A member of the RNA family "Small nucleolar RNA Z199" from Cocos nucifera, 80 nucleotides long.
A search with the family's covariance model found it, with a score of 68 bits.
The organism belongs to Cocos, within Eukaryota.
snoZ199 is a C/D box small nucleolar RNA, which acts as a methylation guide RNA for sites on 18S and 25S rRNA. Rice snoZ199 is reported to be homologous to Arabidopsis snoR13.
The family's RNA type in Rfam is C/D-box small nucleolar RNA.
RNA sequence: GGAUCAGGUGAUGAGGAAACUGCAACAAUAUGAAGCAAUAGUCUACUUCAUGAUUAUUAGUAUUUAAGUCCCUGAUGAUC
Numbered sequence: 001g002g003a004u005c006a007g008g009u010g011a012u013g014a015g016g017a018a019a020c021u022g023c024a025a026c027a028a029u030a031u032g033a034a035g036c037a038a039u040a041g042u043c044u045a046c047u048u049c050a051u052g053a054u055u056a057u058u059a060g061u062a063u064u065u066a067a068g069u070c071c072c073u074g075a076u077g078a079u080c
Base pairs, nucleotide, nucleotide: 001080002079004078005077006076035049037047039045